[Rfam]
RNA sequence: GGAUGUGAGGGCGAUCUGGCUGCGACAUCUGUCACCCCAUUGAUCGCCAGGGUUCAUUCGGCUGAUCUGGCUGGCUAGGCGGGUGUCCCCUUCCUCCCUCACCGAUCCAUGUGCGUCCCUCCCGAAGCUACGCGCUUGGUCGAAGAGGAUGACCAUCCCCGAUAGAGAGGUUCCGUUCAUCGGUCAAGGGUGUAUGGUAGCUGCGCUCCCCUGCUAGAACCUCCAAACAAGCUCAAGACUAGGGGAUGAAUUAUCUUCUGAAGUGUGUUUUCUUUUUUUAUGUCCUUCUCUGUUGAAAAUAGCAUGAGCUCAAAGGGCAAUCUUA
Numbered sequence: 001g002g003a004u005g006u007g008a009g010g011g012c013g014a015u016c017u018g019g020c021u022g023c024g025a026c027a028u029c030u031g032u033c034a035c036c037c038c039a040u041u042g043a044u045c046g047c048c049a050g051g052g053u054u055c056a057u058u059c060g061g062c063u064g065a066u067c068u069g070g071c072u073g074g075c076u077a078g079g080c081g082g083g084u085g086u087c088c089c090c091u092u093c094c095u096c097c098c099u100c101a102c103c104g105a106u107c108c109a110u111g112u113g114c115g116u117c118c119c120u121c122c123c124g125a126a127g128c129u130a131c132g133c134g135c136u137u138g139g140u141c142g143a144a145g146a147g148g149a150u151g152a153c154c155a156u157c158c159c160c161g162a163u164a165g166a167g168a169g170g171u172u173c174c175g176u177u178c179a180u181c182g183g184u185c186a187a188g189g190g191u192g193u194a195u196g197g198u199a200g201c202u203g204c205g206c207u208c209c210c211c212u213g214c215u216a217g218a219a220c221c222u223c224c225a226a227a228c229a230a231g232c233u234c235a236a237g238a239c240u241a242g243g244g245g246a247u248g249a250a251u252u253a254u255c256u257u258c259u260g261a262a263g264u265g266u267g268u269u270u271u272c273u274u275u276u277u278u279u280a281u282g283u284c285c286u287u288c289u290c291u292g293u294u295g296a297a298a299a300u301a302g303c304a305u306g307a308g309c310u311c312a313a314a315g316g317g318c319a320a321u322c323u324u325a
Stems, first nucleotide, its partner, number of pairs: 001108003005102007013093002018090002024087010035074002037070003042067004046062003117170001119167003122139004127135002140162003147158003201315002210306001212304003222297001224295001227293003231289001
Source information
The family of this 325-nucleotide RNA sequence from Stercorarius parasiticus is "7SK RNA". The family's consensus secondary structure is taken from published work. About the family: 7SK was discovered as an abundant small nuclear RNA in the mid-70s but a possible function has only recently been suggested. Two independent studies have found that 7SK RNA binds the CDK9/cyclin T complex (known as elongation factor P-TEFb). P-TEFb activates transcription by phosphorylating the C-terminal domain of RNA polymerase II. This process is negatively regulated by the 7SK RNP. The secondary structure of 7SK RNA shown here was proposed by Wasserman and Steitz on the basis of chemical modification and enzymatic cleavage experiments. Lineage of the source: Eukaryota > Metazoa > Gnathostomata > Neognathae > Stercorarius.